[Rfam]
RNA sequence: GACUUAUAUUCAGUGGCAAGGUUAACCGUUUAGGGGAGCCGUAGGGAAACCGAGUCUUAACUGGGCGUUCAGUCUCUGGAUAUAGACCCGAAACCAGGUGAUCUAGCCAUGGGCAGGUUGAAGGUUGAGUAACAUCAACUGGAGGACCGAACCGACUAAUGUUGAAAAAUUAGCGGAUGACUUGUGGCUAGGGGUGAAAGGCCAAUCAAACCUGGAGAUAGCUGGUU
Numbered sequence: 001g002a003c004u005u006a007u008a009u010u011c012a013g014u015g016g017c018a019a020g021g022u023u024a025a026c027c028g029u030u031u032a033g034g035g036g037a038g039c040c041g042u043a044g045g046g047a048a049a050c051c052g053a054g055u056c057u058u059a060a061c062u063g064g065g066c067g068u069u070c071a072g073u074c075u076c077u078g079g080a081u082a083u084a085g086a087c088c089c090g091a092a093a094c095c096a097g098g099u100g101a102u103c104u105a106g107c108c109a110u111g112g113g114c115a116g117g118u119u120g121a122a123g124g125u126u127g128a129g130u131a132a133c134a135u136c137a138a139c140u141g142g143a144g145g146a147c148c149g150a151a152c153c154g155a156c157u158a159a160u161g162u163u164g165a166a167a168a169a170u171u172a173g174c175g176g177a178u179g180a181c182u183u184g185u186g187g188c189u190a191g192g193g194g195u196g197a198a199a200g201g202c203c204a205a206u207c208a209a210a211c212c213u214g215g216a217g218a219u220a221g222c223u224g225g226u227u
Stems, first nucleotide, its partner, number of pairs: 005084009015074003020040004026034002044051002054066004087225002090222001094215006103191011114179001116148004123140006152176003156173005193203003
Bacterial large subunit ribosomal RNA: a 227-nucleotide part of an RNA from Vibrio maritimus.
The family's consensus secondary structure is taken from published work.
Taxonomically the source falls in Vibrio (Bacteria, Pseudomonadati, Gammaproteobacteria, Vibrionaceae).